[Rfam]
Record summary: Rfam assigns this 83-nucleotide RNA from Oryza meridionalis to the family "MIR814 microRNA precursor family". Lineage of the source: Eukaryota > Spermatophyta > Petrosaviidae > Oryzinae > Oryza. Rfam links the family to the GO terms miRNA-mediated post-transcriptional gene silencing and RISC complex.
RNA sequence: ACCGGAUGAGACACUUUAUAGUACAACGAAUCUAGACAGGAAGUAUGUCUAGAUUCAUUGUACUAUAAAGUGUCCCAUCCAGU
Numbered sequence: 001a002c003c004g005g006a007u008g009a010g011a012c013a014c015u016u017u018a019u020a021g022u023a024c025a026a027c028g029a030a031u032c033u034a035g036a037c038a039g040g041a042a043g044u045a046u047g048u049c050u051a052g053a054u055u056c057a058u059u060g061u062a063c064u065a066u067a068a069a070g071u072g073u074c075c076c077a078u079c080c081a082g083u
Base pairs, nucleotide, nucleotide: 001083002082004080005079006078007077008076010074011073012072013071014070015069016068018066019065020064021063022062023061024060025059026058028056029055030054031053032052033051034050035049036048037047038046